RNA sequence: GUAUAGUGGUUUUUUGUGUCUUAUGAUGAAGCUUCAUAGGGCAGAUUCUGAGUUGAGAAAUGAAAUUUCUCUCCACUGAUACUUGCUAUGUACUAUCUGAAGACACUGCUUAUUGC
Numbered sequence: 001g002u003a004u005a006g007u008g009g010u011u012u013u014u015u016g017u018g019u020c021u022u023a024u025g026a027u028g029a030a031g032c033u034u035c036a037u038a039g040g041g042c043a044g045a046u047u048c049u050g051a052g053u054u055g056a057g058a059a060a061u062g063a064a065a066u067u068u069c070u071c072u073c074c075a076c077u078g079a080u081a082c083u084u085g086c087u088a089u090g091u092a093c094u095a096u097c098u099g100a101a102g103a104c105a106c107u108g109c110u111u112a113u114u115g116c
Base pairs, nucleotide, nucleotide: 014108016106017105018104019103020102021101030096033092035090036089037088038084041083044080047079048078050076052074055071056070057069058068059067
Dot-bracket structure: .............(.((((((........(..(.((((..(..(..((.(.(..(((((.......)))))..).).)))..))...))).)...)....)))))).)........